[Rfam]
RNA sequence: GUUGAGAGGAACGUUGUCUGGCUCGAGGUCAUAGAGGGUGAUUGAUUUUUCUCUCUCUAAAAAUUAAGUCCCCUAGAUGAUUCUCGGACCAGGCUUCAUUCCCCCCAAC
Numbered sequence: 001g002u003u004g005a006g007a008g009g010a011a012c013g014u015u016g017u018c019u020g021g022c023u024c025g026a027g028g029u030c031a032u033a034g035a036g037g038g039u040g041a042u043u044g045a046u047u048u049u050u051c052u053c054u055c056u057c058u059a060a061a062a063a064u065u066a067a068g069u070c071c072c073c074u075a076g077a078u079g080a081u082u083c084u085c086g087g088a089c090c091a092g093g094c095u096u097c098a099u100u101c102c103c104c105c106c107a108a109c
Stems, first nucleotide, its partner, number of pairs: 001109004006104001008102004013097001016094006024086003
The family of this 109-nucleotide RNA from Actinidia chinensis is "mir-166 microRNA precursor family". This family represents the plant microRNA (miRNA) precursor mir-166. Taxonomically the source falls in Actinidia chinensis (Eukaryota, Tracheophyta, Gunneridae, Pentapetalae). The base pairs follow the family's consensus structure, which was predicted with PFOLD.